[Rfam]
RNA: Bacterial large subunit ribosomal RNA, nucleotides 2166 to 2754
RNA sequence: CCCGCAGAAGGACGGAAAGACCCCGUGCACCUUUACUACAGCUUGAUAUUGGAUAUUGGUUUAGUAUGUGUAGGAUAGGUGGGAGACUUUGAAACUUUGGCGCUAGCCAGAGUGGAGUCAAUCUUGAAAUACCACCCUUAUUACACUGAUAUUCUAACCUCGGUUCCGUGAAUCCGGGCCAGGGACAAUGUCAGGUGGGUAGUUUGACUGGGGCGGUCGCCUCCUAAAAUGUAACGGAGGCGCGCGAAGGUUCCCUCAGGCUGAUUGGAAACCAGCCGACGAGUGUAAAGGCAUAAGGGAGCUUGACUGCAAGACUUACAAGUCGAGCAGGUGCGAAAGCAGGUCUUAGUGAUCCGGUGGUUCCAUGUGGAAGGGCCAUCGCUCAACGGAUAAAAGGUACGCCGGGGAUAACAGGCUUAUCGCCUCCAAGAGUCCAUAUCGACGAGGCGGUUUGGCACCUCGAUGUCGGCUCACCGCAUCCUGGGGCUGAAGCAGGUCCCAAGGGUUGGUCUGUUCGCCCAUUAAAGCGGUACGCGAGCUGGGUUUAGAACGUCGUGAGACAGUUCGGUCCCUAUCCUCUGUGGGUGUU
Numbered sequence: 001c002c003c004g005c006a007g008a009a010g011g012a013c014g015g016a017a018a019g020a021c022c023c024c025g026u027g028c029a030c031c032u033u034u035a036c037u038a039c040a041g042c043u044u045g046a047u048a049u050u051g052g053a054u055a056u057u058g059g060u061u062u063a064g065u066a067u068g069u070g071u072a073g074g075a076u077a078g079g080u081g082g083g084a085g086a087c088u089u090u091g092a093a094a095c096u097u098u099g100g101c102g103c104u105a106g107c108c109a110g111a112g113u114g115g116a117g118u119c120a121a122u123c124u125u126g127a128a129a130u131a132c133c134a135c136c137c138u139u140a141u142u143a144c145a146c147u148g149a150u151a152u153u154c155u156a157a158c159c160u161c162g163g164u165u166c167c168g169u170g171a172a173u174c175c176g177g178g179c180c181a182g183g184g185a186c187a188a189u190g191u192c193a194g195g196u197g198g199g200u201a202g203u204u205u206g207a208c209u210g211g212g213g214c215g216g217u218c219g220c221c222u223c224c225u226a227a228a229a230u231g232u233a234a235c236g237g238a239g240g241c242g243c244g245c246g247a248a249g250g251u252u253c254c255c256u257c258a259g260g261c262u263g264a265u266u267g268g269a270a271a272c273c274a275g276c277c278g279a280c281g282a283g284u285g286u287a288a289a290g291g292c293a294u295a296a297g298g299g300a301g302c303u304u305g306a307c308u309g310c311a312a313g314a315c316u317u318a319c320a321a322g323u324c325g326a327g328c329a330g331g332u333g334c335g336a337a338a339g340c341a342g343g344u345c346u347u348a349g350u351g352a353u354c355c356g357g358u359g360g361u362u363c364c365a366u367g368u369g370g371a372a373g374g375g376c377c378a379u380c381g382c383u384c385a386a387c388g389g390a391u392a393a394a395a396g397g398u399a400c401g402c403c404g405g406g407g408a409u410a411a412c413a414g415g416c417u418u419a420u421c422g423c424c425u426c427c428a429a430g431a432g433u434c435c436a437u438a439u440c441g442a443c444g445a446g447g448c449g450g451u452u453u454g455g456c457a458c459c460u461c462g463a464u465g466u467c468g469g470c471u472c473a474c475c476g477c478a479u480c481c482u483g484g485g486g487c488u489g490a491a492g493c494a495g496g497u498c499c500c501a502a503g504g505g506u507u508g509g510u511c512u513g514u515u516c517g518c519c520c521a522u523u524a525a526a527g528c529g530g531u532a533c534g535c536g537a538g539c540u541g542g543g544u545u546u547a548g549a550a551c552g553u554c555g556u557g558a559g560a561c562a563g564u565u566c567g568g569u570c571c572c573u574a575u576c577c578u579c580u581g582u583g584g585g586u587g588u589u
Stems, first nucleotide, its partner, number of pairs: 001585008010577003014572002022406004027402002029398005035203004042195007051154010062143005068137001078136005085119003094113008158183003163180001165178004206218004219241006242387001244344002250302006256282002259277005283292002307330004313324003332341003355381007363374002415456003419453001420450007430440002467542001468540004472534001473531005480505002483500006507521003511517001548566004552561003